[Rfam]
Annotation:
A member of the RNA family "L31-Actinobacteria ribosomal protein leader", 45 nucleotides long. For this family Rfam cites "Discovery of 20 novel ribosomal leader candidates in bacteria and archaea" (Eckert and Weinberg, BMC Microbiol, 2020). Rfam classes the family as a cis-regulatory leader.
RNA sequence: UCGGCUCCGGUUCACGCCUCGCGACCCUGCAGGCGACCCGGCGCC
Dot-bracket structure: ..(((.((((....(((((.(((....))))))))..)))).)))
Numbered sequence: 001u002c003g004g005c006u007c008c009g010g011u012u013c014a015c016g017c018c019u020c021g022c023g024a025c026c027c028u029g030c031a032g033g034c035g036a037c038c039c040g041g042c043g044c045c
Stems, first nucleotide, its partner, number of pairs: 003045003007041004015035005021030003